[Rfam]
RNA sequence: AAAAAACUGGUAAAGGGGCAGUCCCCUAGCCGCCACUCAAAAGGGGGGAG
Numbered sequence: 001a002a003a004a005a006a007c008u009g010g011u012a013a014a015g016g017g018g019c020a021g022u023c024c025c026c027u028a029g030c031c032g033c034c035a036c037u038c039a040a041a042a043g044g045g046g047g048g049a050g
Stems, first nucleotide, its partner, number of pairs: 015034002017031003022048006
The record is a 50-nucleotide RNA sequence from Human mammary tumor virus, which matches "Gag/pro ribosomal frameshift site" in Rfam. The source organism's lineage runs through Viruses, Artverviricota, Revtraviricetes, Retroviridae and Betaretrovirus.